Shown here is a 148-nucleotide RNA sequence from Aminipila luticellarii, a member of the family "Group II catalytic intron D1-D4-3". The organism belongs to Aminipila, within Bacteria. A search with the family's covariance model found it, with a score of 55 bits. Pairs were carried over by alignment from the consensus structure.
RNA sequence: AAAUAUCUGUCCAAUUUAUUGUAGCCUAUCCAAACAGAAACUUGAUAAGGCGAUGAGGUGAGUAAGGUUGCAUAACAAACCAAAGCCCAAAGGGUAAACGUAUAACCGAAAUUGUAAAUCAAGAGGUUGUGGAACGAAAGAUUAGUGU
Numbered sequence: 001a002a003a004u005a006u007c008u009g010u011c012c013a014a015u016u017u018a019u020u021g022u023a024g025c026c027u028a029u030c031c032a033a034a035c036a037g038a039a040a041c042u043u044g045a046u047a048a049g050g051c052g053a054u055g056a057g058g059u060g061a062g063u064a065a066g067g068u069u070g071c072a073u074a075a076c077a078a079a080c081c082a083a084a085g086c087c088c089a090a091a092g093g094g095u096a097a098a099c100g101u102a103u104a105a106c107c108g109a110a111a112u113u114g115u116a117a118a119u120c121a122a123g124a125g126g127u128u129g130u131g132g133a134a135c136g137a138a139a140g141a142u143u144a145g146u147g148u
Base pairs, nucleotide, nucleotide: 003148004147005146006145010141011140016134017133019131021130023128024127025126026125027124041123042122043121044120045119050115051114052113054110057107058106059105060088062086063085066081067080068079069078